Shown here is a 219-nucleotide RNA from Nakaseomyces glabratus, a member of the family "Small nucleolar RNA snR34".
[Rfam]
RNA sequence: GAAUCAAAAAUUAUACAAAGGAAAUAUGCCACAGUCGACUGAACAUCUGUCUUCUAACAGUAGUUGAUUGCCAGUGUCUCAUAUAUCAAUGAGAUACUCGUUUCCAAGAGCAAAAAUUAUAAUUUAUGGACGGAACAGGAAGCCCUGAUCUUAGUUCCCUUCCCACCGAUAUAUAGGGAAGGUACUGUGGAUUAAGGGUGUCGAAAGAAGUCUACAUUU
Numbered sequence: 001g002a003a004u005c006a007a008a009a010a011u012u013a014u015a016c017a018a019a020g021g022a023a024a025u026a027u028g029c030c031a032c033a034g035u036c037g038a039c040u041g042a043a044c045a046u047c048u049g050u051c052u053u054c055u056a057a058c059a060g061u062a063g064u065u066g067a068u069u070g071c072c073a074g075u076g077u078c079u080c081a082u083a084u085a086u087c088a089a090u091g092a093g094a095u096a097c098u099c100g101u102u103u104c105c106a107a108g109a110g111c112a113a114a115a116a117u118u119a120u121a122a123u124u125u126a127u128g129g130a131c132g133g134a135a136c137a138g139g140a141a142g143c144c145c146u147g148a149u150c151u152u153a154g155u156u157c158c159c160u161u162c163c164c165a166c167c168g169a170u171a172u173a174u175a176g177g178g179a180a181g182g183u184a185c186u187g188u189g190g191a192u193u194a195a196g197g198g199u200g201u202c203g204a205a206a207g208a209a210g211u212c213u214a215c216a217u218u219u
Base pairs, nucleotide, nucleotide: 020079021078022077033069034068035067036066037065038064039063040062041061047060048059049058050057116211117210118209124207125206142199143198144197145196146194148192149191150190151189154188
Overview
The organism belongs to Nakaseomyces, within Eukaryota. A search with the family's covariance model found it, with a score of 112 bits. The family is grouped with related families in Rfam's "SNORA65 clan". Gene Ontology terms of the family: nucleolus and RNA processing. By type it is an H/ACA-box small nucleolar RNA.